[Rfam]
RNA sequence: UUGAAAAGCAUUGCACCCAGGGUCUGGUCACCCAGACAUUGUACCUGGAGCUUUCUUACUUGAAAUAAAAAUUUGU
Numbered sequence: 001u002u003g004a005a006a007a008g009c010a011u012u013g014c015a016c017c018c019a020g021g022g023u024c025u026g027g028u029c030a031c032c033c034a035g036a037c038a039u040u041g042u043a044c045c046u047g048g049a050g051c052u053u054u055c056u057u058a059c060u061u062g063a064a065a066u067a068a069a070a071a072u073u074u075g076u
Stems, first nucleotide, its partner, number of pairs: 005054005017048004022037005